[Rfam]
Nucleotides: 178
Base pairs, nucleotide, nucleotide: 001016002015003014004013005012006011028178030176031175036169040164041163042162043161044160045159046155047154048153049152050151062150063149064148065147066146067145073142074141075140081134082133083132084131085130087115088114089113090112093108094107095106096105
Number, partner (000 for none) and nucleotide at each position: 001016u002015c003014c004013a005012u006011c007000g008000u009000g010000a011006g012005g013004u014003g015002g016001a017000a018000u019000c020000u021000g022000a023000a024000a025000g026000a027000a028178g029000g030176u031175g032000g033000a034000g035000g036169c037000a038000a039000a040164g041163u042162u043161c044160c045159g046155g047154u048153c049152u050151g051000a052000c053000g054000u055000a056000c057000a058000g059000a060000a061000a062150u063149c064148a065147c066146g067145u068000a069000u070000g071000a072000g073142g074141c075140u076000c077000g078000u079000a080000a081134g082133a083132a084131u085130a086000u087115g088114g089113a090112u091000g092000a093108a094107u095106g096105u097000g098000c099000c100000a101000a102000a103000c104000a105096a106095c107094a108093u109000a110000a111000a112090a113089u114088c115087c116000u117000a118000a119000u120000g121000a122000c123000u124000g125000u126000g127000g128000a129000a130085u131084a132083u133082u134081c135000a136000a137000a138000u139000g140075a141074g142073u143000a144000a145067a146066c147065g148064u149063g150062g151050c152049a153048g154047a155046u156000a157000u158000a159045u160044g161043g162042a163041a164040u165000g166000a167000a168000a169036g170000a171000u172000a173000u174000a175031u176030g177000a178028c
Record summary
The record is a 178-nucleotide RNA from Eubacterium sp. AF22-8LB, which matches "Group II catalytic intron D1-D4-3" in Rfam. Pairs were carried over by alignment from the consensus structure. Gene Ontology term of the family: Group II intron splicing.